[Rfam]
RNA sequence: UGGCAGUGAUGACUCUCUUAGGACACCUUUGGAUUAAACAAUGAAAAUAAUCAUUUUCUGAGCCAU
Numbered sequence: 001u002g003g004c005a006g007u008g009a010u011g012a013c014u015c016u017c018u019u020a021g022g023a024c025a026c027c028u029u030u031g032g033a034u035u036a037a038a039c040a041a042u043g044a045a046a047a048u049a050a051u052c053a054u055u056u057u058c059u060g061a062g063c064c065a066u
Base pairs, nucleotide, nucleotide: 001065002064003063004062
Small nucleolar RNA SNORD58: a 66-nucleotide RNA sequence from Sarcophilus harrisii. The family has 33 seed sequences and 2,484 matches in Rfam 15.1. The match comes from Rfam's covariance-model search (77 bits). Taxonomically the source falls in Sarcophilus (Eukaryota, Metazoa, Bilateria, Dasyuromorphia). The family's consensus secondary structure was predicted with PFOLD. snoRNA U58 is found in introns 1, 3 and 6 of the ribosomal protein RPL17 gene in humans. Rfam classes the family as a C/D-box small nucleolar RNA. The literature on the family includes a 2002 paper in Mol Cell Biol by Galardi et al., "Purified box C/D snoRNPs are able to reproduce site-specific 2'-O-methylation of target RNA in vitro".